RNA sequence: GGUGGCAGGCCCACCGGGAUCUGCUGUCGGAAGUCGGUCCCAAACAACCCCGGCUGCUGUGGUAAAGAGCCAUGGUAGUGAGCGCAGGGGCAGGGAAAGAUCACGUAACGCUGAUUUUUUG
Numbered sequence: 001g002g003u004g005g006c007a008g009g010c011c012c013a014c015c016g017g018g019a020u021c022u023g024c025u026g027u028c029g030g031a032a033g034u035c036g037g038u039c040c041c042a043a044a045c046a047a048c049c050c051c052g053g054c055u056g057c058u059g060u061g062g063u064a065a066a067g068a069g070c071c072a073u074g075g076u077a078g079u080g081a082g083c084g085c086a087g088g089g090g091c092a093g094g095g096a097a098a099g100a101u102c103a104c105g106u107a108a109c110g111c112u113g114a115u116u117u118u119u120u121g
Base pairs, nucleotide, nucleotide: 001015002014003013004012005011016041017040018039019038020037021036023034024033025032048090049089050088051087052085053079054078056076057075058074060072061071062070063069097119098117099116100115101114102113
RNA: Group II catalytic intron D1-D4-2
Organism: Escherichia coli